Shown here is a 114-nucleotide RNA from Erythrobacteraceae bacterium CFH 75059, a member of the family "Glycine riboswitch aptamer".

[Rfam]
Nucleotides: 114
Base pairs, nucleotide, nucleotide: 007108008107009106010105011104012103013102020059021058022057023056024055025054026053061094062093063092064090065089068088069087070086074082075081
Number, partner (000 for none) and nucleotide at each position: 001000a002000g003000g004000a005000c006000a007108c008107g009106c010105g011104c012103g013102g014000g015000a016000g017000a018000g019000u020059u021058c022057g023056c024055c025054g026053g027000u028000c029000u030000g031000u032000c033000u034000g035000c036000c037000g038000c039000c040000a041000u042000g043000g044000c045000g046000g047000a048000c049000c050000c051000g052000c053026c054025c055024g056023g057022c058021g059020g060000c061094g062093c063092c064090g065089a066000a067000g068088g069087a070086g071000c072000a073000a074082c075081c076000g077000c078000c079000c080000c081075g082074g083000a084000a085000u086070c087069u088068c089065u090064c091000a092063g093062g094061c095000c096000a097000c098000c099000g100000g101000a102013c103012c104011g105010c106009g107008c108007g109000g110000g111000u112000u113000c114000a
About this RNA
Taxonomically the source falls in Erythrobacteraceae (Bacteria, Pseudomonadati, Alphaproteobacteria, Sphingomonadales).